Overview
Shown here is a 355-nucleotide part of an RNA from Methylotuvimicrobium alcaliphilum, a member of the family "Bacterial small subunit ribosomal RNA". A search with the family's covariance model found it, with a score of 1596 bits. Its family is annotated with structural constituent of ribosome and ribosome in the Gene Ontology. The base pairs follow the family's consensus structure, which is taken from published work. A reference for the family is Yusupov et al. (2001), "Crystal structure of the ribosome at 5.5 A resolution", Science. The organism belongs to Methylotuvimicrobium alcaliphilum, within Bacteria.

[Rfam]
RNA sequence: GGCGUAAAGCGUGCGUAGGCGGUUAUUUAAGUCAGAUGUGAAAGCCCCGGGCUUAACCUGGGAACGGCAUUUGAUACUGGGUAACUUGAGUUUAGGAGAGGAGAGUGGAAUUUCCGGUGUAGCGGUGAAAUGCGUAGAGAUCGGAAGGAACACCAGUGGCGAAGGCGGCUCUCUGGCCUAAAACUGACGCUGAGGUACGAAAGCGUGGGUAGCAAACAGGAUUAGAUACCCUGGUAGUCCACGCCGUAAACGAUGUCAACUAGCCGUUGGGUCUUUAUUAAGACUUAGUGGUGCAGCUAACGCAUUAAGUUGACCGCCUGGGGAGUACGGCCGCAAGGUUAAAACUCAAAUGAAU
Numbered sequence: 001g002g003c004g005u006a007a008a009g010c011g012u013g014c015g016u017a018g019g020c021g022g023u024u025a026u027u028u029a030a031g032u033c034a035g036a037u038g039u040g041a042a043a044g045c046c047c048c049g050g051g052c053u054u055a056a057c058c059u060g061g062g063a064a065c066g067g068c069a070u071u072u073g074a075u076a077c078u079g080g081g082u083a084a085c086u087u088g089a090g091u092u093u094a095g096g097a098g099a100g101g102a103g104a105g106u107g108g109a110a111u112u113u114c115c116g117g118u119g120u121a122g123c124g125g126u127g128a129a130a131u132g133c134g135u136a137g138a139g140a141u142c143g144g145a146a147g148g149a150a151c152a153c154c155a156g157u158g159g160c161g162a163a164g165g166c167g168g169c170u171c172u173c174u175g176g177c178c179u180a181a182a183a184c185u186g187a188c189g190c191u192g193a194g195g196u197a198c199g200a201a202a203g204c205g206u207g208g209g210u211a212g213c214a215a216a217c218a219g220g221a222u223u224a225g226a227u228a229c230c231c232u233g234g235u236a237g238u239c240c241a242c243g244c245c246g247u248a249a250a251c252g253a254u255g256u257c258a259a260c261u262a263g264c265c266g267u268u269g270g271g272u273c274u275u276u277a278u279u280a281a282g283a284c285u286u287a288g289u290g291g292u293g294c295a296g297c298u299a300a301c302g303c304a305u306u307a308a309g310u311u312g313a314c315c316g317c318c319u320g321g322g323g324a325g326u327a328c329g330g331c332c333g334c335a336a337g338g339u340u341a342a343a344a345c346u347c348a349a350a351u352g353a354a355u
Stems, first nucleotide, its partner, number of pairs: 001318003009315001011198004016192001018191003022085007030078002032074008046062006089185003092181005100174007107151001111147008122133003159166002203244006212238002217233004255314006263292012296303002320347003329340004